[Rfam]
RNA: pan motif
Organism: Bacillus pseudomycoides
RNA sequence: UGGGCAGUAUCUGAGUGAACUGCACCAUUAUUUCAAGCAAUGAAGAAAAAUAAUUUGGAUUCUGCCUUGAUCCAACAACGGACUGGGACAGAGGG
Numbered sequence: 001u002g003g004g005c006a007g008u009a010u011c012u013g014a015g016u017g018a019a020c021u022g023c024a025c026c027a028u029u030a031u032u033u034c035a036a037g038c039a040a041u042g043a044a045g046a047a048a049a050a051u052a053a054u055u056u057g058g059a060u061u062c063u064g065c066c067u068u069g070a071u072c073c074a075a076c077a078a079c080g081g082a083c084u085g086g087g088a089c090a091g092a093g094g095g
Base pairs, nucleotide, nucleotide: 001027002026003025004023005022006021007020008019010018011017062091063090064089065087066086067085069083071082072081073080